[Rfam]
RNA sequence: AUUGAGCCUAGCCCGACGGGGCGAAAAGCGGAAAGCCUUACCGCCUGGCUCAAUCACUCUUUAAGGC
Numbered sequence: 001a002u003u004g005a006g007c008c009u010a011g012c013c014c015g016a017c018g019g020g021g022c023g024a025a026a027a028g029c030g031g032a033a034a035g036c037c038u039u040a041c042c043g044c045c046u047g048g049c050u051c052a053a054u055c056a057c058u059c060u061u062u063a064a065g066g067c
Stems, first nucleotide, its partner, number of pairs: 001054008011022004028044004035067006
RNA: int-alpA RNA